The family of this 39-nucleotide RNA sequence is "S4-Flavobacteria ribosomal protein leader". The family's RNA type in Rfam is cis-regulatory leader. Its Rfam clan is "Ribosomal Protein S4 Leader clan".
RNA sequence: GACUGUCGAAGGAUUAACUUUAGACCUUAAUUCAUAGUC
Numbered sequence: 001g002a003c004u005g006u007c008g009a010a011g012g013a014u015u016a017a018c019u020u021u022a023g024a025c026c027u028u029a030a031u032u033c034a035u036a037g038u039c
Stems, first nucleotide, its partner, number of pairs: 001039006008033001009028004